The record is a 252-nucleotide RNA sequence from Streptomyces sp. AVP053U2, which matches "Streptomyces sRNA 4677" in Rfam. Pairs were carried over by alignment from the consensus structure. A reference for the family is Hindra et al. (2014), "Complex intra-operonic dynamics mediated by a small RNA in Streptomyces coelicolor", PLoS One. The organism belongs to Streptomyces, within Bacteria. Located in the intergenic region between anti-sigma factor SCO4677 gene and a putative regulatory protein gene SCO4676. scr4677 expression requires the SCO4677 activity and scr4677 sRNA itself seem to affect the levels of the SCO4676-associated transcripts.
[Rfam]
RNA sequence: GGUUCCGGUGGCGCUGACGACUGAAAGACAAAGAACGUGGGGGAAAGAACCCCCACCACACCCCACCCCUCCCGCCCGUGGCCCGCGCUCACUCGGGAGGGUGAACAUCCCCGGUCCGGCUGGAUUUCGGGGCCCGCCAGGCCCGAGGCUCGGCCCAACGCAGGACCCACACCGACAGACACGCGACGGCCCCCGCCGGGACGGCAGUCCCAGGGCGAGGGCCUGACCACCGAGGAAGCGAGAACCUUCCCG
Numbered sequence: 001g002g003u004u005c006c007g008g009u010g011g012c013g014c015u016g017a018c019g020a021c022u023g024a025a026a027g028a029c030a031a032a033g034a035a036c037g038u039g040g041g042g043g044a045a046a047g048a049a050c051c052c053c054c055a056c057c058a059c060a061c062c063c064c065a066c067c068c069c070u071c072c073c074g075c076c077c078g079u080g081g082c083c084c085g086c087g088c089u090c091a092c093u094c095g096g097g098a099g100g101g102u103g104a105a106c107a108u109c110c111c112c113g114g115u116c117c118g119g120c121u122g123g124a125u126u127u128c129g130g131g132g133c134c135c136g137c138c139a140g141g142c143c144c145g146a147g148g149c150u151c152g153g154c155c156c157a158a159c160g161c162a163g164g165a166c167c168c169a170c171a172c173c174g175a176c177a178g179a180c181a182c183g184c185g186a187c188g189g190c191c192c193c194c195g196c197c198g199g200g201a202c203g204g205c206a207g208u209c210c211c212a213g214g215g216c217g218a219g220g221g222c223c224u225g226a227c228c229a230c231c232g233a234g235g236a237a238g239c240g241a242g243a244a245c246c247u248u249c250c251c252g
Stems, first nucleotide, its partner, number of pairs: 007231004016076001018074002089104006119154005188223005194217003198211004234250005